A member of the RNA family "Bacterial RNase P class A" from Limoniibacter endophyticus, 421 nucleotides long.
[Rfam]
Nucleotides: 421
Stems, first nucleotide, its partner, number of pairs: 001417010011406001012364007020048008053404003057401005062252004071296002075248005080094005095109001096107004110243002115241002117237003132182002134178008190208006209232001210230004215224003256321004266312006288303005328347008
Number, partner (000 for none) and nucleotide at each position: 001417c002416c003415a004414g005413u006412c007411g008410g009409c010408c011406g012364g013363g014362c015361g016360g017359c018358c019000g020048c021047g022046g023045a024044u025043g026042c027041c028000a029000a030000u031000g032000u033000c034000g035000a036000a037000a038000g039000a040000c041027g042026g043025u044024a045023u046022u047021c048020g049000a050000g051000g052000a053404a054403a055402g056000u057401c058400c059399g060398g061397g062252c063251u064250c065249c066000a067000u068000g069000g070000a071296a072295a073000c074000a075248a076247g077246g078245u079244g080094c081093c082092g083091g084090c085000u086000a087000a088000c089000g090084g091083c092082c093081g094080g095109c096107g097106g098105g099104g100000g101000c102000g103000a104099c105098c106097c107096c108000a109095g110243g111242g112000a113000a114000a115241g116240u117237g118236c119235c120000a121000c122000a123000g124000a125000a126000a127000g128000c129000a130000a131000a132182c133181c134178g135177c136176c137175u138174c139173g140172c141171c142000u143000g144000c145000c146000c147000u148000u149000u150000u151000g152000u153000c154000g155000a156000u157000u158000u159000g160000a161000c162000a163000c164000a165000a166000g167000c168000g169000c170000u171141g172140g173139c174138g175137a176136g177135g178134u179000a180000a181133g182132g183000g184000u185000g186000a187000a188000a189000g190208g191207g192206u193205g194204g195203g196000g197000u198000a199000a200000g201000a202000g203195c204194c205193c206192a207191c208190c209232g210230c211229g212228u213227c214000a215224g216223c217222g218000g219000c220000a221000a222217c223216g224215c225000g226000c227213g228212a229211c230210g231000g232209c233000a234000c235119g236118g237117u238000a239000a240116a241115c242111c243110c244079c245078g246077c247076c248075u249065g250064g251063a252062g253000c254000a255000a256321g257320a258319c259318c260000g261000a262000a263000u264000a265000g266312g267311g268310g269309c270308a271307g272000c273000g274000c275000g276000g277000a278000g279000u280000u281000c282000g283000c284000u285000c286000c287000g288303g289302g290301g291300a292299u293000g294000u295072u296071u297000c298000c299292g300291u301290c302289c303288u304000u305000g306000a307271c308270u309269g310268c311267c312266c313000g314000g315000g316000u317000u318259g319258g320257u321256c322000g323000c324000g325000u326000g327000a328347g329346g330345u331344a332343c333342g334341u335340c336000g337000c338000a339000a340335g341334g342333c343332g344331u345330a346329u347328c348000c349000c350000a351000g352000a353000g354000g355000a356000a357000u358018g359017g360016c361015c362014g363013c364012c365000a366000c367000g368000u369000u370000c371000c372000g373000g374000c375000a376000u377000u378000c379000g380000u381000g382000c383000c384000g385000g386000g387000c388000c389000a390000u391000a392000c393000a394000g395000a396000a397061c398060c399059c400058g401057g402055c403054u404053u405000a406011c407000a408010g409009g410008c411007c412006g413005a414004c415003u416002g417001g418000u419000u420000u421000u

Taxonomically the source falls in Limoniibacter (Bacteria, Pseudomonadati, Alphaproteobacteria, Hyphomicrobiales).